Overview
Rfam assigns this 101-nucleotide RNA from Scleropages formosus to the family "mir-454 microRNA precursor family". Taxonomically the source falls in Scleropages (Eukaryota, Opisthokonta, Craniata, Osteoglossocephala). A search with the family's covariance model found it, with a score of 81 bits. The literature on the family includes a 2005 paper in Genes Dev by Chen et al., "The developmental miRNA profiles of zebrafish as determined by small RNA cloning". The family's consensus secondary structure was predicted with RNAalifold.
[Rfam]
Nucleotides: 101
Stems, first nucleotide, its partner, number of pairs: 020087010030074009041064005
Number, partner (000 for none) and nucleotide at each position: 001000u002000c003000c004000a005000a006000g007000u008000u009000a010000c011000c012000u013000u014000a015000c016000a017000g018000g019000u020087g021086a022085g023084a024083c025082c026081c027080u028079a029078u030074c031073a032072a033071u034070g035069u036068u037067g038066c039000c040000u041064c042063u043062g044061c045060u046000u047000a048000u049000u050000u051000g052000u053000a054000c055000g056000u057000a058000u059000g060045a061044g062043u063042a064041g065000u066038g067037c068036a069035a070034u071033a072032u073031u074030g075000c076000u077000u078029a079028u080027a081026g082025g083024g084023u085022c086021u087020u088000u089000u090000c091000u092000a093000u094000c095000a096000g097000g098000g099000a100000u101000c